The family of this 351-nucleotide RNA from Limnovirga soli is "Bacterial RNase P class A". NCBI's taxonomy places the organism under Bacteria, Bacteroidota, Chitinophagales, Chitinophagaceae, Limnovirga.
[Rfam]
RNA sequence: CUACAGGCCCGAACUAUCGCACCAAACUUGUUUGGUGAGGAAAGUCUGGACAGUACAGGGCAACCCACCGGUGAACAGCCGGGUCUUGUGCAAACAGGAACAGAAAGUGCCACAGAAAAUUACCGCCACGCUGCAAAGCAGGUAAGGGUGAAAAUGUGAGGUAAAAGCUCACAAUGCCGGGCAGUAAUGCAAGGCAUGGGUAAACCUUGGGUGCUGUAAUGCCACGUAUAGUACCGUUUUAAGAGCGGCCCGUUCAAGGUACAGGGUAGGCAGCAACACUGUAACAGUAAUGUUGCAGGCAGAUAAAUGAUAGUGUUAAAACAGAAUCCGGCUUACGAGGUUUGUAGUACA
Numbered sequence: 001c002u003a004c005a006g007g008c009c010c011g012a013a014c015u016a017u018c019g020c021a022c023c024a025a026a027c028u029u030g031u032u033u034g035g036u037g038a039g040g041a042a043a044g045u046c047u048g049g050a051c052a053g054u055a056c057a058g059g060g061c062a063a064c065c066c067a068c069c070g071g072u073g074a075a076c077a078g079c080c081g082g083g084u085c086u087u088g089u090g091c092a093a094a095c096a097g098g099a100a101c102a103g104a105a106a107g108u109g110c111c112a113c114a115g116a117a118a119a120u121u122a123c124c125g126c127c128a129c130g131c132u133g134c135a136a137a138g139c140a141g142g143u144a145a146g147g148g149u150g151a152a153a154a155u156g157u158g159a160g161g162u163a164a165a166a167g168c169u170c171a172c173a174a175u176g177c178c179g180g181g182c183a184g185u186a187a188u189g190c191a192a193g194g195c196a197u198g199g200g201u202a203a204a205c206c207u208u209g210g211g212u213g214c215u216g217u218a219a220u221g222c223c224a225c226g227u228a229u230a231g232u233a234c235c236g237u238u239u240u241a242a243g244a245g246c247g248g249c250c251c252g253u254u255c256a257a258g259g260u261a262c263a264g265g266g267u268a269g270g271c272a273g274c275a276a277c278a279c280u281g282u283a284a285c286a287g288u289a290a291u292g293u294u295g296c297a298g299g300c301a302g303a304u305a306a307a308u309g310a311u312a313g314u315g316u317u318a319a320a321a322c323a324g325a326a327u328c329c330g331g332c333u334u335a336c337g338a339g340g341u342u343u344g345u346a347g348u349a350c351a
Stems, first nucleotide, its partner, number of pairs: 001347009011336001013314006020037007042334003046331005051216004058251004063212005068082005083101001084099006102207002107205002109201003123147002125143003130139003155173006175196004181190003220272004231262005243255004279298008
Dot-bracket structure: (((((((((.(.((((((.(((((((....)))))))....[[[.[[[[[((((...[[[[.((((((((((.....)))))(((((((....)))))).)((...(((((...........(((((..(((....))).)))..)).......((((((.......)))))).((((..(((....)))..))))..)))..)))))))))))))...((((.......(((((.......((((.]]]]))))..)))))......))))......((((((((....))))))))..........))))))............]]]]]]]].)..)))))))))....